Rfam assigns this 58-nucleotide RNA from Acinetobacter soli to the family "Xanthine riboswitch aptamer (NMT1 RNA)". The literature on the family includes a 2021 paper in Nucleic Acids Res by Xu et al., "Insights into xanthine riboswitch structure and metal ion-mediated ligand recognition". It is one of the family's seed sequences. NCBI's taxonomy places the organism under Bacteria, Pseudomonadati, Gammaproteobacteria, Moraxellales, Acinetobacter soli.
[Rfam]
RNA sequence: AUUGAGAGUAGAAGCUGUCAACAUAUAAAAAACGAGUAUGUGGGUCAUUGCUCUAAGC
Numbered sequence: 001a002u003u004g005a006g007a008g009u010a011g012a013a014g015c016u017g018u019c020a021a022c023a024u025a026u027a028a029a030a031a032a033c034g035a036g037u038a039u040g041u042g043g044g045u046c047a048u049u050g051c052u053c054u055a056a057g058c
Base pairs, nucleotide, nucleotide: 005054006053007052008051009050010049015043019044021041022040023039024038025037026036